[Rfam]
RNA sequence: AAAGCUGCUGCAGUUAAAAAGCUCGUAGUUGGAUCUCGGGGGGGGCGCCGCGAAAGGAGGUGGGCUCACCAUUCCCCGCGGCGACCCCUCUACAAGUCGCCGGCUCCCCCGCGGCCGUCCUUGACUGGGCGUCCCGGGCGGCCGGCUCCUCACUUUGAAAAAAUUAGAGUGUUCAAGGCGGGCCCACGCGCCCGGAUACCGUCGCACGGAAUGAUGGAAGAGGACAGCCGUCCCACACAUCACGGCCGGUCUCAGGGACGGAGGUAAUGAUUGACAGGGAUGAUCGGGGGCAUCCGUACCGCGGCGGGAGAAGUGAAACUUGAUGAUCGUCGCGAGACGGCCGAGAGCGAAAGCACUUGCCAAGAGCGUUUUCCUUAAUCAAGAACGAAAGUCGGAGGUUCAAAGACGAUUAGAUACCGUUGUAGUUUCGACCCUAAAUGUUGCCGACCGGCGAUCCGCGGAGGUCCCGCCUGGGACCGCGCGGGCGGCCCUCGGGAAACCAGAGUCACUGGGUUCCGGGGGGAGUAUGGUCGCAAGUCUGAAACUUAAAGGAAU
Numbered sequence: 001a002a003a004g005c006u007g008c009u010g011c012a013g014u015u016a017a018a019a020a021g022c023u024c025g026u027a028g029u030u031g032g033a034u035c036u037c038g039g040g041g042g043g044g045g046c047g048c049c050g051c052g053a054a055a056g057g058a059g060g061u062g063g064g065c066u067c068a069c070c071a072u073u074c075c076c077c078g079c080g081g082c083g084a085c086c087c088c089u090c091u092a093c094a095a096g097u098c099g100c101c102g103g104c105u106c107c108c109c110c111g112c113g114g115c116c117g118u119c120c121u122u123g124a125c126u127g128g129g130c131g132u133c134c135c136g137g138g139c140g141g142c143c144g145g146c147u148c149c150u151c152a153c154u155u156u157g158a159a160a161a162a163a164u165u166a167g168a169g170u171g172u173u174c175a176a177g178g179c180g181g182g183c184c185c186a187c188g189c190g191c192c193c194g195g196a197u198a199c200c201g202u203c204g205c206a207c208g209g210a211a212u213g214a215u216g217g218a219a220g221a222g223g224a225c226a227g228c229c230g231u232c233c234c235a236c237a238c239a240u241c242a243c244g245g246c247c248g249g250u251c252u253c254a255g256g257g258a259c260g261g262a263g264g265u266a267a268u269g270a271u272u273g274a275c276a277g278g279g280a281u282g283a284u285c286g287g288g289g290g291c292a293u294c295c296g297u298a299c300c301g302c303g304g305c306g307g308g309a310g311a312a313g314u315g316a317a318a319c320u321u322g323a324u325g326a327u328c329g330u331c332g333c334g335a336g337a338c339g340g341c342c343g344a345g346a347g348c349g350a351a352a353g354c355a356c357u358u359g360c361c362a363a364g365a366g367c368g369u370u371u372u373c374c375u376u377a378a379u380c381a382a383g384a385a386c387g388a389a390a391g392u393c394g395g396a397g398g399u400u401c402a403a404a405g406a407c408g409a410u411u412a413g414a415u416a417c418c419g420u421u422g423u424a425g426u427u428u429c430g431a432c433c434c435u436a437a438a439u440g441u442u443g444c445c446g447a448c449c450g451g452c453g454a455u456c457c458g459c460g461g462a463g464g465u466c467c468c469g470c471c472u473g474g475g476a477c478c479g480c481g482c483g484g485g486c487g488g489c490c491c492u493c494g495g496g497a498a499a500c501c502a503g504a505g506u507c508a509c510u511g512g513g514u515u516c517c518g519g520g521g522g523g524a525g526u527a528u529g530g531u532c533g534c535a536a537g538u539c540u541g542a543a544a545c546u547u548a549a550a551g552g553a554a555u
Stems, first nucleotide, its partner, number of pairs: 011518001013516001019515001021386001023384002028379003277373004281368002284365002289361004295339002300334007310321002347354002391432006401425001405421004443514003446507003450490003455485006464477003494501002520547003529540002532537001
About this RNA:
This 555-nucleotide part of an RNA from Tritonia nilsodhneri belongs to the Rfam family "Eukaryotic small subunit ribosomal RNA". Pairs were carried over by alignment from the consensus structure, which is taken from published work. The sequence is in the family's curated seed alignment.